[Rfam]
RNA sequence: AGGGAAGAGACGAUGAUGUGUUUCCAAGCACAUAUCUGACUUAUGUGCGGAUGACAAUCAAGCUGAGUCUUUUCCAC
Numbered sequence: 001a002g003g004g005a006a007g008a009g010a011c012g013a014u015g016a017u018g019u020g021u022u023u024c025c026a027a028g029c030a031c032a033u034a035u036c037u038g039a040c041u042u043a044u045g046u047g048c049g050g051a052u053g054a055c056a057a058u059c060a061a062g063c064u065g066a067g068u069c070u071u072u073u074c075c076a077c
Stems, first nucleotide, its partner, number of pairs: 003075004008070004
A member of the RNA family "Small nucleolar RNA SNORD121A" from Cricetulus griseus, 77 nucleotides long. Lineage of the source: Eukaryota > Gnathostomata > Eutheria > Rodentia > Cricetulus. By type it is a C/D-box small nucleolar RNA. A reference for the family is Yang et al. (2006), "snoSeeker: an advanced computational package for screening of guide and orphan snoRNA genes in the human genome", Nucleic Acids Res.